[Rfam]
Record summary:
The family of this 289-nucleotide RNA sequence from Orbilia oligospora is "Fungal signal recognition particle RNA". Clan: SRP clan. Rfam links the family to the GO terms SRP-dependent cotranslational protein targeting to membrane, signal sequence recognition, signal recognition particle, plasma membrane targeting and signal recognition particle, endoplasmic reticulum targeting. It is annotated as a non-coding RNA gene.
RNA sequence: UGGCUGUAAUGGUCAUUUUAUUGGAAAAUUGAGGGUUCUCCCUCUGCCAAGACCGUUUGCCGGGUUUACUCGGCAGUGUCCGCGGUGUCGAGUUCGAACUCUCUGGUGCGCGGUUUCCCGUCGGAGUGAGCAAUCAUCCAGUAUGGGCGUGUGUAAAGUUGGAGGGUAUUUGUGAGGGUGGAAACACCGCAGCAGGCCUCUUCACCAGAGAGUGGCGUCAACACGAUAGCACCUGUGGGCAUUUGGGUACUGGUGGACGGGAGGUUAGGACUCGAGUCACCAAUUUAUU
Numbered sequence: 001u002g003g004c005u006g007u008a009a010u011g012g013u014c015a016u017u018u019u020a021u022u023g024g025a026a027a028a029u030u031g032a033g034g035g036u037u038c039u040c041c042c043u044c045u046g047c048c049a050a051g052a053c054c055g056u057u058u059g060c061c062g063g064g065u066u067u068a069c070u071c072g073g074c075a076g077u078g079u080c081c082g083c084g085g086u087g088u089c090g091a092g093u094u095c096g097a098a099c100u101c102u103c104u105g106g107u108g109c110g111c112g113g114u115u116u117c118c119c120g121u122c123g124g125a126g127u128g129a130g131c132a133a134u135c136a137u138c139c140a141g142u143a144u145g146g147g148c149g150u151g152u153g154u155a156a157a158g159u160u161g162g163a164g165g166g167u168a169u170u171u172g173u174g175a176g177g178g179u180g181g182a183a184a185c186a187c188c189g190c191a192g193c194a195g196g197c198c199u200c201u202u203c204a205c206c207a208g209a210g211a212g213u214g215g216c217g218u219c220a221a222c223a224c225g226a227u228a229g230c231a232c233c234u235g236u237g238g239g240c241a242u243u244u245g246g247g248u249a250c251u252g253g254u255g256g257a258c259g260g261g262a263g264g265u266u267a268g269g270a271c272u273c274g275a276g277u278c279a280c281c282a283a284u285u286u287a288u289u
Base pairs, nucleotide, nucleotide: 001015002014003013004012020284021283022282023281024280029275030274031273032272033271035266037264038263040261041260042259043257044256045255046254047253048252049251052248053247054246058075059074060073061072062071063070064069077241078240079239080238081237082236083235084233085232086231087230088229089225090224092222093221095217096216098213099212100211101210102209103208104207105206106205114149117147118146119145120142121141123139124138125137128135129134153159154158160204161203162202163201164200165199166198170195171194172193173192178187179186180185
Dot-bracket structure: ((((.......))))....(((((....(((((.(.((.((((((((((..(((...(((((((....))))))).((((((((((((((.((.((.(((((((((.......(..(((((.(((..((....)).))).))..))).)...((...))(((((((...((((....(((....)))....))))..))))))))))))))))..))...)).))...))))).)))))))....)))..))))))).))).)).)....)))))....))))).....